[Rfam]
RNA sequence: AUCUUAUCAAGAGUGGCGGAGGGACUGGCCCUGUGAAGCCCGGCAACCUGUCUGUAAAAGGAUGUACGGUGCCAAAUCCAGGCAGAUGAGAG
Numbered sequence: 001a002u003c004u005u006a007u008c009a010a011g012a013g014u015g016g017c018g019g020a021g022g023g024a025c026u027g028g029c030c031c032u033g034u035g036a037a038g039c040c041c042g043g044c045a046a047c048c049u050g051u052c053u054g055u056a057a058a059a060g061g062a063u064g065u066a067c068g069g070u071g072c073c074a075a076a077u078c079c080a081g082g083c084a085g086a087u088g089a090g091a092g
Base pairs, nucleotide, nucleotide: 002091003090004089005088006087007086008085013041015040016039017038021031022030023029025081026080027079028078042073043072044071045070047069048068049064050063051062052061077084